[Rfam]
RNA sequence: ACCCCAUGAUAUAAGCCGGCAGGGAAAAUAUUUUCCAGUUUUUCCUGUGACUAUGAUUGGGAACAACAAUGUUCCUCCGAUGUGUGUAUGUGGCAAUAUCAUACAAAUUUAUUGCACCAAAGAAUGAUUCGGAGCACA
Number, nucleotide and partner (000 for none) at each position: 001a000002c000003c000004c000005c000006a000007u000008g000009a000010u000011a000012u000013a000014a000015g000016c000017c000018g000019g048020c047021a046022g045023g044024g043025a042026a041027a000028a000029u000030a000031u000032u000033u000034u000035c000036c000037a000038g000039u000040u000041u026042u025043u024044c023045c022046u021047g020048u019049g000050a000051c000052u000053a000054u000055g000056a000057u000058u000059g000060g000061g000062a000063a000064c000065a000066a000067c000068a000069a000070u000071g000072u000073u000074c000075c000076u000077c132078c131079g130080a129081u000082g000083u000084g000085u000086g000087u000088a000089u119090g118091u000092g000093g115094c114095a113096a000097u000098a110099u000100c000101a000102u000103a000104c000105a000106a000107a000108u000109u000110u098111a000112u000113u095114g094115c093116a000117c000118c090119a089120a000121a000122g000123a000124a000125u000126g000127a000128u000129u080130c079131g078132g077133a000134g000135c000136a000137c000138a000
Shown here is a 138-nucleotide sequence from Bactrocera dorsalis, a member of the family "Small nucleolar RNA snoR639/H1".
Rfam 15.1 lists 77 matches to the family in 63 species.
Taxonomically the source falls in Bactrocera dorsalis complex (Eukaryota, Protostomia, Mandibulata, Eremoneura).
It scores 81 bits against the family's covariance model.
Pairs were carried over by alignment from the consensus structure.